[Rfam]
RNA sequence: UAACUAGCCAAGCAUACAUCAGUUGCAAGCAUUGGAAGUUCAAGUCUGACU
Numbered sequence: 001u002a003a004c005u006a007g008c009c010a011a012g013c014a015u016a017c018a019u020c021a022g023u024u025g026c027a028a029g030c031a032u033u034g035g036a037a038g039u040u041c042a043a044g045u046c047u048g049a050c051u
Base pairs, nucleotide, nucleotide: 002039008035009034011033012030013029019049020048021047022046
The record is a 51-nucleotide RNA sequence from Polerovirus PEVYV1, which matches "Exoribonuclease-resistant RNA (xrRNA) plant-infecting virus (class 3)" in Rfam. Pairs were carried over by alignment from the consensus structure, which is taken from published work. The sequence is in the family's curated seed alignment. Exoribonuclease-resistant RNA (xrRNA) plant-infecting virus (class 3) is a ncRNA that was reported in Plant viruses. The source organism's lineage runs through Viruses, Pisuviricota, Sobelivirales, Polerovirus and Polerovirus PEVYV1. A reference for the family is Steckelberg et al. (2018), "Exoribonuclease-Resistant RNAs Exist within both Coding and Noncoding Subgenomic RNAs", mBio.